RNA sequence: AGACGAACCACAACGGAUCGGCAGGAGCGGGAGACCCGAGCAAGGCGGGCCGUGUCCCACGCGGCCCUUGGGGUGAAGCCACUUCGGUGGCCGGGCAACUUCGCCGGCCCGAACCCGACAGGUCAUCUUUCGCAGGCGGAUGACGAAGGGUCA
Numbered sequence: 001a002g003a004c005g006a007a008c009c010a011c012a013a014c015g016g017a018u019c020g021g022c023a024g025g026a027g028c029g030g031g032a033g034a035c036c037c038g039a040g041c042a043a044g045g046c047g048g049g050c051c052g053u054g055u056c057c058c059a060c061g062c063g064g065c066c067c068u069u070g071g072g073g074u075g076a077a078g079c080c081a082c083u084u085c086g087g088u089g090g091c092c093g094g095g096c097a098a099c100u101u102c103g104c105c106g107g108c109c110c111g112a113a114c115c116c117g118a119c120a121g122g123u124c125a126u127c128u129u130u131c132g133c134a135g136g137c138g139g140a141u142g143a144c145g146a147a148g149g150g151u152c153a
Stems, first nucleotide, its partner, number of pairs: 027133004031127002037070004071116003079090004093110004

c-di-AMP riboswitch aptamer (ydaO/yuaA leader): a 153-nucleotide RNA sequence from Streptomyces carminius.
The match comes from Rfam's covariance-model search (45 bits).